Shown here is a 54-nucleotide sequence from Conger conger, a member of the family "UnaL2 LINE 3' element". From the family's description: The eel long interspersed element (LINE) UnaL2 and its partner short interspersed element (SINE) share a conserved 3' tail containing a stem-loop that is critical for their retrotransposition. Presumably, the first step of retrotransposition is the recognition of their 3' tails by UnaL2-encoded reverse transcriptase. The solution structure of a 17-nucleotide RNA derived from the 3' tail of UnaL2 was determined by NMR.
RNA sequence: UCUGCACUUUAUUGUACGUCGCUCUGAAUAAGAGCGUCUGCUAAAUGACACUAA
Numbered sequence: 001u002c003u004g005c006a007c008u009u010u011a012u013u014g015u016a017c018g019u020c021g022c023u024c025u026g027a028a029u030a031a032g033a034g035c036g037u038c039u040g041c042u043a044a045a046u047g048a049c050a051c052u053a054a
Stems, first nucleotide, its partner, number of pairs: 013043001014041003020036006